[Rfam]
RNA sequence: GAAUAAAAAAUGGGGGGCUCGCGCAAAGCGGGCUGAGAGUAAGCUGUGUUGCUUUGACCCACAACCUGAUUUGGAUAAUGCCAACGUAGGGAUAUAUGGUUUCUUUUAG
Numbered sequence: 001g002a003a004u005a006a007a008a009a010a011u012g013g014g015g016g017g018c019u020c021g022c023g024c025a026a027a028g029c030g031g032g033c034u035g036a037g038a039g040u041a042a043g044c045u046g047u048g049u050u051g052c053u054u055u056g057a058c059c060c061a062c063a064a065c066c067u068g069a070u071u072u073g074g075a076u077a078a079u080g081c082c083a084a085c086g087u088a089g090g091g092a093u094a095u096a097u098g099g100u101u102u103c104u105u106u107u108a109g
Stems, first nucleotide, its partner, number of pairs: 006097001008095001010093001011061004016055001017033005041054004065090004071084004
About this RNA
TPP riboswitch aptamer (THI element): a 109-nucleotide RNA from Congzhengia minquanensis. Taxonomically the source falls in Congzhengia (Bacteria, Bacillati, Bacillota, Clostridia). The family's consensus secondary structure is taken from published work. A search with the family's covariance model found it, with a score of 63 bits.